[Rfam]
RNA sequence: GCCACUGCUCGCACCUGCUGCUGGUGCCCGGCGUUGGCCCUGAUCACUUGGCACUGUCAGCGGGUGUGAGCAGCAGCUG
Numbered sequence: 001g002c003c004a005c006u007g008c009u010c011g012c013a014c015c016u017g018c019u020g021c022u023g024g025u026g027c028c029c030g031g032c033g034u035u036g037g038c039c040c041u042g043a044u045c046a047c048u049u050g051g052c053a054c055u056g057u058c059a060g061c062g063g064g065u066g067u068g069a070g071c072a073g074c075a076g077c078u079g
Stems, first nucleotide, its partner, number of pairs: 005073016022056007
About this RNA
mir-9198 microRNA precursor family: a 79-nucleotide RNA sequence from Myotis brandtii.